Description: This 103-nucleotide sequence from Saccharopolyspora thermophila belongs to the Rfam family "Glycine riboswitch aptamer". The organism belongs to Saccharopolyspora, within Bacteria.
[Rfam]
RNA sequence: CGACCCCGUGCGGGAGAGUCCGGCCCGGUUUCGGCCGCGGUCGGCGCCGAAGGAGCAAACCCUCCCCGACAACCUCUCAGGCCACCUGGACCGCGCGGGCGAG
Numbered sequence: 001c002g003a004c005c006c007c008g009u010g011c012g013g014g015a016g017a018g019u020c021c022g023g024c025c026c027g028g029u030u031u032c033g034g035c036c037g038c039g040g041u042c043g044g045c046g047c048c049g050a051a052g053g054a055g056c057a058a059a060c061c062c063u064c065c066c067c068g069a070c071a072a073c074c075u076c077u078c079a080g081g082c083c084a085c086c087u088g089g090a091c092c093g094c095g096c097g098g099g100c101g102a103g
Base pairs, nucleotide, nucleotide: 006098007097008096009095010094011093012092013091020044021043022042023041024040025039046082047081048080049078050077053076054075055074060068
A search with the family's covariance model found it, with a score of 59 bits.